[Rfam]
RNA sequence: CUCUGGAAAGCAGCUAUCCGGACCGCUGAACGCGGGAAGGGCCGCUCACCGAAGGAGUAACCGCGAAGGGCCAGAGUAGGGUCCCGCGGGAAAUCUCUCAGGUACUCGGACAGAG
Numbered sequence: 001c002u003c004u005g006g007a008a009a010g011c012a013g014c015u016a017u018c019c020g021g022a023c024c025g026c027u028g029a030a031c032g033c034g035g036g037a038a039g040g041g042c043c044g045c046u047c048a049c050c051g052a053a054g055g056a057g058u059a060a061c062c063g064c065g066a067a068g069g070g071c072c073a074g075a076g077u078a079g080g081g082u083c084c085c086g087c088g089g090g091a092a093a094u095c096u097c098u099c100a101g102g103u104a105c106u107c108g109g110a111c112a113g114a115g
Base pairs, nucleotide, nucleotide: 001115002114003113004112005111012046013045014044048103049102050101051099052098055097056096057095061090062089
Shown here is a 115-nucleotide RNA from Roseibium suaedae, a member of the family "Glycine riboswitch aptamer". Pairs were carried over by alignment from the consensus structure. A search with the family's covariance model found it, with a score of 40 bits. The family is grouped with related families in Rfam's "Glycine riboswitch clan".